[Rfam]
RNA sequence: AGAUGGAGCACGUCGCAGGCUAUCGCCCCCGCCGCGACGUGUUCCGGGAACGGGCGAAGGUCCGUUCCCACCGAUACCUUCCGGAAGGAGAAUGCCCCCCUCCGUCGGAAGGUGCGGCGGGCGGUGAGGUCCCCCCAGCUUCACCGCCCGUACUU
Numbered sequence: 001a002g003a004u005g006g007a008g009c010a011c012g013u014c015g016c017a018g019g020c021u022a023u024c025g026c027c028c029c030c031g032c033c034g035c036g037a038c039g040u041g042u043u044c045c046g047g048g049a050a051c052g053g054g055c056g057a058a059g060g061u062c063c064g065u066u067c068c069c070a071c072c073g074a075u076a077c078c079u080u081c082c083g084g085a086a087g088g089a090g091a092a093u094g095c096c097c098c099c100c101u102c103c104g105u106c107g108g109a110a111g112g113u114g115c116g117g118c119g120g121g122c123g124g125u126g127a128g129g130u131c132c133c134c135c136c137a138g139c140u141u142c143a144c145c146g147c148c149c150g151u152a153c154u155u
Base pairs, nucleotide, nucleotide: 009041010040011039012038013037014036015035018033019032020031046069047068048067049066050065051064052063053062054061055060071117075114077112078111081108082107083106084105087103088102089101090100119149120148121147122146123145124144125143126142127141128140129139130138
The family of this 155-nucleotide sequence from Rhodopseudomonas palustris is "Bradyrhizobiaceae sRNA BjrC80". Rfam's curators put it in the seed alignment. The base pairs follow the family's consensus structure.